Overview
Shown here is an 87-nucleotide RNA from Thermincola carboxydiphila, a member of the family "c-di-GMP-I riboswitch aptamer". It scores 70 bits against the family's covariance model.
RNA sequence: UAUAAAAGUUGGCAAACUUCGCGAAAGUGAAGGACGCAAAGCUAUGGGUCUACGGCCAGGGGAGGUUAUGAUUGCCAGGUUGCGGUU
Numbered sequence: 001u002a003u004a005a006a007a008g009u010u011g012g013c014a015a016a017c018u019u020c021g022c023g024a025a026a027g028u029g030a031a032g033g034a035c036g037c038a039a040a041g042c043u044a045u046g047g048g049u050c051u052a053c054g055g056c057c058a059g060g061g062g063a064g065g066u067u068a069u070g071a072u073u074g075c076c077a078g079g080u081u082g083c084g085g086u087u
Stems, first nucleotide, its partner, number of pairs: 012037002017032006040081004045077003048072003055066003